Overview:
This 262-nucleotide RNA from Alicyclobacillus acidoterrestris belongs to the Rfam family "T-box leader". NCBI's taxonomy places the organism under Bacteria, Bacillati, Bacilli, Caryophanales, Alicyclobacillus. From the family's description: Uncharged tRNA acts as the effector for transcription antitermination of genes in the T-box leader family. T-boxes are found upstream of many aminoacyl-tRNA synthetase genes and some amino acid biosynthetic genes usually in Gram-positive bacteria. The anticodon of a specific tRNA base pairs to a specifier sequence within the T-box motif, and the NCCA acceptor tail of the tRNA base pairs to a conserved bulge in the T-box antiterminator hairpin.

RNA sequence: GAAAUUGCCGUGAUCAGGAGUAGUAAGGGUUCAUUCUGUGCAGAGAGCUGCGGUUGGGUGCGACGCAGUCAGGAGAGCCCCUGAACUCACCUGUGAGCUUCGAGACGGAACCGAGUAGAGGAUUUCACCGCAGUACGUCUGGACGGUUGACCUCCGUUAUCGGGUGUUGCCCAGUGCGGCAACGUGAGUGAGUUUUGCGUAGUAAAGUGCGCGAAGCUAAGCAGAGUGGUACCGCGGAAGGCCAUGGCCUGUCGUCUCUAGC
Numbered sequence: 001g002a003a004a005u006u007g008c009c010g011u012g013a014u015c016a017g018g019a020g021u022a023g024u025a026a027g028g029g030u031u032c033a034u035u036c037u038g039u040g041c042a043g044a045g046a047g048c049u050g051c052g053g054u055u056g057g058g059u060g061c062g063a064c065g066c067a068g069u070c071a072g073g074a075g076a077g078c079c080c081c082u083g084a085a086c087u088c089a090c091c092u093g094u095g096a097g098c099u100u101c102g103a104g105a106c107g108g109a110a111c112c113g114a115g116u117a118g119a120g121g122a123u124u125u126c127a128c129c130g131c132a133g134u135a136c137g138u139c140u141g142g143a144c145g146g147u148u149g150a151c152c153u154c155c156g157u158u159a160u161c162g163g164g165u166g167u168u169g170c171c172c173a174g175u176g177c178g179g180c181a182a183c184g185u186g187a188g189u190g191a192g193u194u195u196u197g198c199g200u201a202g203u204a205a206a207g208u209g210c211g212c213g214a215a216g217c218u219a220a221g222c223a224g225a226g227u228g229g230u231a232c233c234g235c236g237g238a239a240g241g242c243c244a245u246g247g248c249c250u251g252u253c254g255u256c257u258c259u260a261g262c
Base pairs, nucleotide, nucleotide: 007098008097015093016092017091018090026082027081028080029079031077036072037071038070047069048068049067050066051065052064101142103140104139105138106137107136144156145155146154191218192217193216194215195214196213197212198211199210200209201208223259224258225257226256234255235254236253237252